The family of this 143-nucleotide RNA from Candidatus Hakubella thermalkaliphila is "Group II catalytic intron D1-D4-4". On this family, see Chu et al., EMBO J 2001: "Control of branch-site choice by a group II intron". Group II introns are found in rRNA, tRNA and mRNA of organelles in fungi, plants and protists, and also in mRNA in bacteria. Rfam links the family to the GO term Group II intron splicing.
RNA sequence: UUGUAGGUGAAAGUCCUACUCCAGGAAUUGCCUGUUCACCUGGAUAGCGAGGAGUGCAGCCAUAGGGGGUAACUCCUAUGGUUGAAGCCACUCGACAAACUCUGGCAUGGCCAGGGGACGCAAACUCACAGGCCGUAACUAAC
Numbered sequence: 001u002u003g004u005a006g007g008u009g010a011a012a013g014u015c016c017u018a019c020u021c022c023a024g025g026a027a028u029u030g031c032c033u034g035u036u037c038a039c040c041u042g043g044a045u046a047g048c049g050a051g052g053a054g055u056g057c058a059g060c061c062a063u064a065g066g067g068g069g070u071a072a073c074u075c076c077u078a079u080g081g082u083u084g085a086a087g088c089c090a091c092u093c094g095a096c097a098a099a100c101u102c103u104g105g106c107a108u109g110g111c112c113a114g115g116g117g118a119c120g121c122a123a124a125c126u127c128a129c130a131g132g133c134c135g136u137a138a139c140u141a142a143c
Stems, first nucleotide, its partner, number of pairs: 020044005052093005057084006066075001068073001100116006120136002